Shown here is a 91-nucleotide RNA sequence from Imhoffiella purpurea, a member of the family "t44 RNA". The organism belongs to Imhoffiella, within Bacteria. The match comes from Rfam's covariance-model search (71 bits).
RNA sequence: GAUUUCGAACCUAAUGUCCACACACGUAUCGGCACAUGCGGCUGGGUGCCCGUCGACACGGGUUGUCGCGUGGGAUGCGUGGAGGUCCAAC
Numbered sequence: 001g002a003u004u005u006c007g008a009a010c011c012u013a014a015u016g017u018c019c020a021c022a023c024a025c026g027u028a029u030c031g032g033c034a035c036a037u038g039c040g041g042c043u044g045g046g047u048g049c050c051c052g053u054c055g056a057c058a059c060g061g062g063u064u065g066u067c068g069c070g071u072g073g074g075a076u077g078c079g080u081g082g083a084g085g086u087c088c089a090a091c
Base pairs, nucleotide, nucleotide: 023081024080025079026078027077028076029075030074035072036071037070038069039068040067041066042065048063049062050061051060052059